[Rfam]
RNA sequence: GCAUCUGAAACUUUCCCGCUCCUUGAGGUACAGUUCUGGACUGGGGACACAUGAUGCAACAGGGAAGCAGAGGAAAUCCAGACAAGCUCCCUUUCACCACAGUGGGACUUGUCUCUACGCCUUUGCAACAUUU
Numbered sequence: 001g002c003a004u005c006u007g008a009a010a011c012u013u014u015c016c017c018g019c020u021c022c023u024u025g026a027g028g029u030a031c032a033g034u035u036c037u038g039g040a041c042u043g044g045g046g047a048c049a050c051a052u053g054a055u056g057c058a059a060c061a062g063g064g065a066a067g068c069a070g071a072g073g074a075a076a077u078c079c080a081g082a083c084a085a086g087c088u089c090c091c092u093u094u095c096a097c098c099a100c101a102g103u104g105g106g107a108c109u110u111g112u113c114u115c116u117a118c119g120c121c122u123u124u125g126c127a128a129c130a131u132u133u
Stems, first nucleotide, its partner, number of pairs: 001057005013047006021039002067126006080114007094105003
The family of this 133-nucleotide RNA from Manacus vitellinus is "Small nucleolar RNA SNORA55". By type it is an H/ACA-box small nucleolar RNA. Rfam describes the family as follows. ACA55 is a member of the H/ACA class of snoRNA that guide the sites of modification of uridines to pseudouridines. Pairs were carried over by alignment from the consensus structure, which was predicted with PFOLD. Gene Ontology terms of the family: nucleolus and RNA processing. The organism belongs to Manacus, within Eukaryota.